[Rfam]
RNA sequence: AAACGAGAUGACUGGCUCCCUAAUGAUGAUAUUUUAGGGAGCUAGUGCAAACGCAACAGUUUUGUAAGGCAUAUAAUCUAGGAUAGUUUCACAAUCUAAGAUUAGCUUCACAGGUCUGUUGCGUGUGCUUUUAUUUGAUAAAUUCUAACUGAAUUGGUAGCACAUGAACGCCAUACUAACGCACCGGUUACAACAUAAGCUCGGGUACACUUUUACAC
Number, nucleotide and partner (000 for none) at each position: 001a000002a000003a000004c000005g000006a000007g000008a000009u000010g000011a000012c000013u044014g043015g042016c041017u040018c038019c037020c000021u000022a000023a000024u000025g000026a000027u000028g000029a000030u000031a000032u000033u000034u000035u000036a000037g019038g018039g000040a017041g016042c015043u014044a013045g130046u000047g128048c127049a126050a000051a124052c123053g122054c121055a120056a119057c118058a117059g116060u000061u000062u114063u113064g000065u110066a000067a108068g107069g106070c105071a000072u000073a000074u000075a000076a000077u101078c000079u098080a097081g096082g095083a000084u093085a000086g000087u000088u000089u000090c000091a000092c000093a084094a000095u082096c081097u080098a079099a000100g000101a077102u000103u000104a000105g070106c069107u068108u067109c000110a065111c000112a000113g063114g062115u000116c059117u058118g057119u056120u055121g054122c053123g052124u051125g000126u049127g048128c047129u000130u045131u000132u000133a000134u000135u000136u000137g000138a000139u000140a000141a000142a000143u000144u000145c000146u000147a000148a000149c000150u000151g000152a000153a000154u000155u000156g000157g000158u000159a000160g000161c000162a000163c000164a000165u000166g000167a000168a000169c000170g000171c000172c000173a000174u000175a000176c000177u000178a000179a000180c000181g000182c000183a000184c203185c000186g201187g200188u199189u198190a000191c000192a000193a000194c000195a000196u000197a000198a189199g188200c187201u186202c000203g184204g000205g000206u000207a000208c000209a000210c000211u000212u000213u000214u000215a000216c000217a000218c000

Background
The record is a 218-nucleotide RNA from Xenorhabdus koppenhoeferi, which matches "rncO" in Rfam. Rfam links the family to the GO term regulation of mRNA stability. The family's consensus secondary structure is taken from published work. A reference for the family is Matsunaga et al. (1996), "RNase III autoregulation: structure and function of rncO, the posttranscriptional 'operator'", RNA. By type it is a cis-regulatory element. Rfam describes the family as follows. This family represents a bacterial regulatory element (rncO) found in the rnc leader sequence. The rnc operon is negatively auto-regulated by transcript stability. rnc, the first gene in the operon codes for RNase III which cleaves the long rncO stem II leading to transcript degradation and a reduction in translation. NCBI's taxonomy places the organism under Bacteria, Gammaproteobacteria, Enterobacterales, Morganellaceae, Xenorhabdus.